[Rfam]
RNA: Glutamine riboswitch aptamer (glnA leader)
RNA sequence: AUCGUUCAACCCAUUUGGGUCGGAAGUAAGCUGAAGCUGAAGGAACGCGAA
Dot-bracket structure: ..(((((.((((....))))..[.....(((....)))....)))))]...